Rfam assigns this 77-nucleotide RNA from Dasypus novemcinctus to the family "Small nucleolar RNA SNORD19". The family has 22 seed sequences and 1,431 matches in Rfam 15.1. It is one of the family's seed sequences. It is annotated as a C/D-box small nucleolar RNA.
[Rfam]
RNA sequence: GAGGUAUGAGGAAAACGUCUGAACAGUCUGAUUGUCACUGAAGACUGAUAAGAUCCAACUCUGACCUCAGUUAAACC
Numbered sequence: 001g002a003g004g005u006a007u008g009a010g011g012a013a014a015a016c017g018u019c020u021g022a023a024c025a026g027u028c029u030g031a032u033u034g035u036c037a038c039u040g041a042a043g044a045c046u047g048a049u050a051a052g053a054u055c056c057a058a059c060u061c062u063g064a065c066c067u068c069a070g071u072u073a074a075a076c077c
Base pairs, nucleotide, nucleotide: 001068002067003066004065

On this family, see Huttenhofer et al., EMBO J 2001: "RNomics: an experimental approach that identifies 201 candidates for novel, small, non-messenger RNAs in mouse". The pairing is the family consensus, mapped onto this sequence.